[Rfam]
RNA sequence: GUUGGGCAGGGUGGUUCCUGCCUGUGGGCCAAACUUCCGGGCGACUGAACGAUGAACGAUCUCGAAGGCAGGGUCACGCCUUCCGAACUCACCACUUGCAGACGGUCUGUCCAGGCUGAGCGCUGUGUAGACACUCCAUCCAGACGCAAGUCUGGGUGAGGGGUCUUUGAAGAGCGGGGCACCGCCCGAGGCUGGCAACAGAGCAGGGAAAACUCGCCGCACGGCGUAGCACCUGGGUUGCGGACCUGAGAGUGGGCGCGGUGGGCGCUGCUGUAGAGAUCGGACUACCGUUUAU
Number, nucleotide and partner (000 for none) at each position: 001g045002u044003u043004g023005g022006g021007c020008a019009g018010g017011g016012u000013g000014g000015u000016u011017c010018c009019u008020g007021c006022c005023u004024g000025u000026g000027g000028g042029c041030c040031a000032a000033a000034c000035u000036u000037c000038c000039g000040g030041g029042c028043g003044a002045c001046u000047g293048a292049a291050c290051g289052a000053u287054g286055a000056a000057c282058g281059a280060u279061c278062u277063c276064g000065a274066a000067g272068g271069c270070a269071g268072g000073g000074u000075c000076a000077c267078g266079c265080c264081u263082u000083c261084c260085g000086a000087a000088c258089u000090c256091a000092c000093c254094a253095c252096u251097u250098g000099c248100a000101g000102a000103c000104g246105g245106u244107c243108u242109g241110u240111c236112c235113a000114g234115g233116c000117u231118g230119a000120g227121c226122g225123c224124u223125g222126u221127g220128u219129a166130g165131a164132c163133a000134c161135u160136c000137c158138a157139u156140c155141c154142a153143g152144a151145c150146g000147c000148a000149a000150g145151u144152c143153u142154g141155g140156g139157u138158g137159a000160g135161g134162g000163g132164u131165c130166u129167u000168u172169g000170a000171a000172g168173a000174g217175c216176g215177g214178g213179g000180c000181a000182c000183c000184g000185c208186c207187c206188g000189a000190g000191g000192c201193u200194g199195g000196c000197a000198a000199c194200a193201g192202a000203g000204c000205a000206g187207g186208g185209a000210a000211a000212a000213c178214u177215c176216g175217c174218c000219g128220c127221a126222c125223g124224g123225c122226g121227u120228a000229g000230c118231a117232c000233c115234u114235g112236g111237g000238u000239u000240g110241c109242g108243g107244a106245c105246c104247u000248g099249a000250g097251a096252g095253u094254g093255g000256g090257c000258g088259c000260g084261g083262u000263g081264g080265g079266c078267g077268c071269u070270g069271c068272u067273g000274u065275a000276g063277a062278g061279a060280u059281c058282g057283g000284a000285c000286u054287a053288c000289c051290g050291u049292u048293u047294a000295u000
RNA: Metazoan signal recognition particle RNA